The family of this 136-nucleotide RNA from Anser cygnoides is "Small nucleolar RNA SNORA29".
For this family Rfam cites "RNomics: an experimental approach that identifies 201 candidates for novel, small, non-messenger RNAs in mouse" (Huttenhofer et al., EMBO J, 2001).
The family is grouped with related families in Rfam's "SNORA20 clan".
[Rfam]
RNA sequence: CUUCCCAUUAUACUACCACUUUUUCAAUUUCCAGAUGAAGUGGCUAUGCUUGUGGGAUAGAGAAAAAAAUGCCACGGUCUGAAGGAAAAGGUUGACUGUAUCUUUUUCCUAUAUGAAGUUGGCAGAACAAGGUGCU
Number, nucleotide and partner (000 for none) at each position: 001c000002u000003u000004c056005c055006c054007a053008u000009u000010a000011u000012a000013c000014u000015a000016c043017c042018a041019c040020u000021u000022u000023u000024u000025c000026a000027a000028u000029u000030u000031c000032c000033a000034g000035a000036u000037g000038a000039a000040g019041u018042g017043g016044c000045u000046a000047u000048g000049c000050u000051u000052g000053u007054g006055g005056g004057a000058u000059a000060g000061a000062g000063a000064a000065a000066a000067a000068a000069a000070u000071g123072c122073c121074a120075c000076g000077g000078u000079c000080u000081g000082a000083a000084g000085g000086a000087a000088a000089a110090g109091g108092u000093u000094g000095a000096c000097u000098g000099u000100a000101u000102c000103u000104u000105u000106u000107u000108c091109c090110u089111a000112u000113a000114u000115g000116a000117a000118g000119u000120u074121g073122g072123c071124a000125g000126a000127a000128c000129a000130a000131g000132g000133u000134g000135c000136u000
The source organism's lineage runs through Eukaryota, Eumetazoa, Chordata, Anseriformes and Anser. Pairs were carried over by alignment from the consensus structure, which was predicted with PFOLD. Rfam describes the family as follows. ACA29 is a member of the H/ACA class of snoRNA that guide the sites of modification of uridines to pseudouridines.